small nucleolar RNA snoR126: a 135-nucleotide RNA from Morus notabilis. It is annotated as a C/D-box small nucleolar RNA. Gene Ontology terms of the family: RNA processing and nucleolus.
RNA sequence: AGGCGAUGAUGACAAAAUUUACGUUUCUCGAUUCUGAAUUAUGUAUAUUUGACAAUAUACAUAAUAGACCAAUUAUGCAAUGUUUCUACUUAUACAUUGCACUUUGAUGACAUUAUUUGUGCGUGUCUGAGCCUU
Numbered sequence: 001a002g003g004c005g006a007u008g009a010u011g012a013c014a015a016a017a018u019u020u021a022c023g024u025u026u027c028u029c030g031a032u033u034c035u036g037a038a039u040u041a042u043g044u045a046u047a048u049u050u051g052a053c054a055a056u057a058u059a060c061a062u063a064a065u066a067g068a069c070c071a072a073u074u075a076u077g078c079a080a081u082g083u084u085u086c087u088a089c090u091u092a093u094a095c096a097u098u099g100c101a102c103u104u105u106g107a108u109g110a111c112a113u114u115a116u117u118u119g120u121g122c123g124u125g126u127c128u129g130a131g132c133c134u135u
Base pairs, nucleotide, nucleotide: 001134002133003132004131